A member of the RNA family "MIR7504 microRNA precursor family" from Gossypium mustelinum, 123 nucleotides long. The base pairs follow the family's consensus structure, which was predicted with RNAalifold. Rfam 15.1 lists 7,343 matches to the family in 61 species.
[Rfam]
Nucleotides: 123
Base pairs, nucleotide, nucleotide: 001123002122003121004120005119006118007117008116009115010114011113013111014110015109016108017107018106019105020104022102023100024099026097027096029094030093031092032091034089035088037086038085039084041082042081045078046077047076048075
Number, partner (000 for none) and nucleotide at each position: 001123a002122a003121u004120a005119g006118g007117a008116g009115a010114a011113u012000a013111a014110c015109a016108a017107a018106u019105u020104a021000g022102a023100u024099u025000u026097u027096u028000c029094c030093u031092c032091c033000c034089g035088a036000u037086u038085u039084u040000c041082a042081g043000a044000u045078u046077u047076u048075u049000c050000c051000u052000c053000u054000a055000a056000a057000a058000a059000a060000a061000u062000u063000c064000a065000a066000a067000u068000u069000g070000a071000a072000c073000u074000a075048a076047a077046a078045a079000u080000a081042c082041u083000a084039a085038a086037a087000u088035u089034u090000a091032g092031g093030a094029g095000g096027a097026a098000u099024a100023a101000a102022u103000a104020u105019g106018a107017u108016u109015u110014g111013u112000c113011a114010u115009u116008c117007u118006c119005c120004u121003a122002u123001u